[Rfam]
RNA sequence: UGUAAAUACCCUCCUUGGGUGUUUCCUCCCUAGACUUAGCCGCGCCCAUGGCGCGGUUUUUUUUGCGCGCC
Numbered sequence: 001u002g003u004a005a006a007u008a009c010c011c012u013c014c015u016u017g018g019g020u021g022u023u024u025c026c027u028c029c030c031u032a033g034a035c036u037u038a039g040c041c042g043c044g045c046c047c048a049u050g051g052c053g054c055g056g057u058u059u060u061u062u063u064u065g066c067g068c069g070c071c
Stems, first nucleotide, its partner, number of pairs: 008020004040056007